[Rfam]
RNA sequence: AUACAUUUCGGGAAUGAGGUUCUCCCUUAGCAUCAUGCUAAAACCGCUUAUUAAGUUGAUGACUUCUGUAAUUUU
Numbered sequence: 001a002u003a004c005a006u007u008u009c010g011g012g013a014a015u016g017a018g019g020u021u022c023u024c025c026c027u028u029a030g031c032a033u034c035a036u037g038c039u040a041a042a043a044c045c046g047c048u049u050a051u052u053a054a055g056u057u058g059a060u061g062a063c064u065u066c067u068g069u070a071a072u073u074u075u
Stems, first nucleotide, its partner, number of pairs: 010026004016066006046056003
Rfam assigns this 75-nucleotide sequence from Petrocella atlantisensis to the family "Fluoride riboswitch aptamer (crcB RNA motif)". It scores 40 bits against the family's covariance model. The source organism's lineage runs through Bacteria, Bacillati, Bacillota, Clostridia and Petrocella.